[Rfam]
RNA: Glycine riboswitch aptamer
RNA sequence: CCGACUCUGAAAAGCGGAUGCCGCCCCGGCGGCUUCCCGCCGAAGGUGAAAGCACAGCUCCCCCGGAGCGUCGCGAAGCUCUCAGGCCCAUGACAGAGGGGGAGUU
Numbered sequence: 001c002c003g004a005c006u007c008u009g010a011a012a013a014g015c016g017g018a019u020g021c022c023g024c025c026c027c028g029g030c031g032g033c034u035u036c037c038c039g040c041c042g043a044a045g046g047u048g049a050a051a052g053c054a055c056a057g058c059u060c061c062c063c064c065g066g067a068g069c070g071u072c073g074c075g076a077a078g079c080u081c082u083c084a085g086g087c088c089c090a091u092g093a094c095a096g097a098g099g100g101g102g103a104g105u106u
Base pairs, nucleotide, nucleotide: 002101005098006097007096008095009094016037017036018035039087040086041085042083043082046081048079052074053073